[Rfam]
RNA: mir-223 microRNA precursor family
RNA sequence: AGAGCCGGCCGCAGCGCUGCCCUCCGUGUAUUUGACGAGCUGAUUUGACACUCCGUGUGGCAGGGUGUCAGUUUGUCAAAUAUACAAAGGGCGGCGUUUGCACAG
Numbered sequence: 001a002g003a004g005c006c007g008g009c010c011g012c013a014g015c016g017c018u019g020c021c022c023u024c025c026g027u028g029u030a031u032u033u034g035a036c037g038a039g040c041u042g043a044u045u046u047g048a049c050a051c052u053c054c055g056u057g058u059g060g061c062a063g064g065g066u067g068u069c070a071g072u073u074u075g076u077c078a079a080a081u082a083u084a085c086a087a088a089g090g091g092c093g094g095c096g097u098u099u100g101c102a103c104a105g
Stems, first nucleotide, its partner, number of pairs: 020091004026085001028083014047069004052064002